The family of this 100-nucleotide sequence from Cohnella lubricantis is "Purine riboswitch aptamer". A search with the family's covariance model found it, with a score of 74 bits. Taxonomically the source falls in Cohnella (Bacteria, Bacillota, Bacilli, Caryophanales). The family's consensus secondary structure is taken from published work.
RNA sequence: CCUUCAUAUGUUUCUUCCUCUCGUAUAUCCCCGGCGAUAUGGGCCGGGAGUCUCUACCGGGAACCGCAAAUUCCUGACUACGACGGAAGUGGGACGUUAA
Numbered sequence: 001c002c003u004u005c006a007u008a009u010g011u012u013u014c015u016u017c018c019u020c021u022c023g024u025a026u027a028u029c030c031c032c033g034g035c036g037a038u039a040u041g042g043g044c045c046g047g048g049a050g051u052c053u054c055u056a057c058c059g060g061g062a063a064c065c066g067c068a069a070a071u072u073c074c075u076g077a078c079u080a081c082g083a084c085g086g087a088a089g090u091g092g093g094a095c096g097u098u099a100a
Stems, first nucleotide, its partner, number of pairs: 018086002021083005030048006058076006